The family of this 82-nucleotide sequence from Anisodus acutangulus is "Small nucleolar RNA R160". By type it is a C/D-box small nucleolar RNA. Gene Ontology terms of the family: RNA processing and nucleolus. The base pairs follow the family's consensus structure. From the family's description: snoR160 is a C/D box small nucleolar RNA, which acts as a methylation guide for 25S ribosomal RNA in plants. snoR160 has been alternatively named snoZ270 in rice. It scores 56 bits against the family's covariance model.
RNA sequence: AGCAAAAUGAUGAGGAACUGUGCUGAAUUUUUAUGUUGAAUAUACAUAUCAUAAGCCUUCAAAGUUCUCUGAUUGUAUUGCU
Numbered sequence: 001a002g003c004a005a006a007a008u009g010a011u012g013a014g015g016a017a018c019u020g021u022g023c024u025g026a027a028u029u030u031u032u033a034u035g036u037u038g039a040a041u042a043u044a045c046a047u048a049u050c051a052u053a054a055g056c057c058u059u060c061a062a063a064g065u066u067c068u069c070u071g072a073u074u075g076u077a078u079u080g081c082u
Stems, first nucleotide, its partner, number of pairs: 001082005